[Rfam]
RNA sequence: GCUGCGGGACGACCUGCAGCGGCGGCCAGGGGCGGGACGACCCGC
Dot-bracket structure: ((((((((....))))))))...........(((((....)))))
Numbered sequence: 001g002c003u004g005c006g007g008g009a010c011g012a013c014c015u016g017c018a019g020c021g022g023c024g025g026c027c028a029g030g031g032g033c034g035g036g037a038c039g040a041c042c043c044g045c
Stems, first nucleotide, its partner, number of pairs: 001020008032045005